Rfam assigns this 67-nucleotide RNA from Dimorphilus gyrociliatus to the family "mir-2 microRNA precursor family".
Its family is annotated with miRNA-mediated post-transcriptional gene silencing and RISC complex in the Gene Ontology.
The family has 56 seed sequences and 918 matches in Rfam 15.1.
The literature on the family includes a 2001 paper in Science by Lee and Ambros, "An extensive class of small RNAs in Caenorhabditis elegans".
RNA sequence: UGGCUUGUCGAGUGGCAGUGAUGUGUCGAUUUCAUGAUCAUAUCACAGCCAGCUUUGAUGAGCUAUG
Dot-bracket structure: ....((((((((((((.((((..(((.............))))))).)))).)).))))))......